Notes: A member of the RNA family "Small nucleolar RNA SNORD82" from Aquarana catesbeiana, 66 nucleotides long. Pairs were carried over by alignment from the consensus structure, which was predicted with PFOLD. NCBI's taxonomy places the organism under Eukaryota, Dipnotetrapodomorpha, Neobatrachia, Ranoidea, Aquarana. Rfam's curators write: snoRNA U82 or Z25 is found in both humans and mice. It scores 66 bits against the family's covariance model. Rfam 15.1 lists 649 matches to the family in 590 species. Gene Ontology terms of the family: RNA processing and nucleolus.
RNA sequence: GGCACAAAUGAUGAACAAUUUUGGGACUUAAUACUGAUCCUUGAUGACUGUUGUUUGCUGAUGUGC
Numbered sequence: 001g002g003c004a005c006a007a008a009u010g011a012u013g014a015a016c017a018a019u020u021u022u023g024g025g026a027c028u029u030a031a032u033a034c035u036g037a038u039c040c041u042u043g044a045u046g047a048c049u050g051u052u053g054u055u056u057g058c059u060g061a062u063g064u065g066c
Stems, first nucleotide, its partner, number of pairs: 002066005